[Rfam]
RNA sequence: GGUUCCCUGAUGUUGGUGAUACUGCAUCAGGAACUGAAUGGAGACCCAUGAGAGGCCAUCGGUUCCUGAUGCACGGUCCUCAGCAUCUGAAGA
Numbered sequence: 001g002g003u004u005c006c007c008u009g010a011u012g013u014u015g016g017u018g019a020u021a022c023u024g025c026a027u028c029a030g031g032a033a034c035u036g037a038a039u040g041g042a043g044a045c046c047c048a049u050g051a052g053a054g055g056c057c058a059u060c061g062g063u064u065c066c067u068g069a070u071g072c073a074c075g076g077u078c079c080u081c082a083g084c085a086u087c088u089g090a091a092g093a
Stems, first nucleotide, its partner, number of pairs: 023073005029067009039058003
This 93-nucleotide RNA from Gasterosteus aculeatus belongs to the Rfam family "mir-217 microRNA precursor family".
The base pairs follow the family's consensus structure, which was predicted with RNAalifold.
Lineage of the source: Eukaryota > Teleostei > Clupeocephala > Acanthomorphata > Gasterosteus.
The literature on the family includes a 2003 paper in Science by Lim et al., "Vertebrate microRNA genes".
It scores 80 bits against the family's covariance model.